[Rfam]
RNA sequence: GGCGCUAAACGCUAUGUGGAAUAGGCCUUGCGGACCCGGGGGCGGUACCCGGCGCCUCCACCAAAUUCCGGAAUUACGGCCGGAGAAUGGGGGCGAAACAGGAUCGACGCGGGUAGUAAAGACAUGGUUUGCGCUCGGCAUGGUACCACCGUUAUCGGGCUAAACCUCACAAGUGCCAACGACAACGUUGCUCUUGCCGCUGCGGCGUAA
Numbered sequence: 001g002g003c004g005c006u007a008a009a010c011g012c013u014a015u016g017u018g019g020a021a022u023a024g025g026c027c028u029u030g031c032g033g034a035c036c037c038g039g040g041g042g043c044g045g046u047a048c049c050c051g052g053c054g055c056c057u058c059c060a061c062c063a064a065a066u067u068c069c070g071g072a073a074u075u076a077c078g079g080c081c082g083g084a085g086a087a088u089g090g091g092g093g094c095g096a097a098a099c100a101g102g103a104u105c106g107a108c109g110c111g112g113g114u115a116g117u118a119a120a121g122a123c124a125u126g127g128u129u130u131g132c133g134c135u136c137g138g139c140a141u142g143g144u145a146c147c148a149c150c151g152u153u154a155u156c157g158g159g160c161u162a163a164a165c166c167u168c169a170c171a172a173g174u175g176c177c178a179a180c181g182a183c184a185a186c187g188u189u190g191c192u193c194u195u196g197c198c199g200c201u202g203c204g205g206c207g208u209a210a
Base pairs, nucleotide, nucleotide: 001135002134003133004132005131014125015124016123017122026113027112028111030110031109032108036052037051038050039049040048053095054094055093056092057091058090059089136151137150138149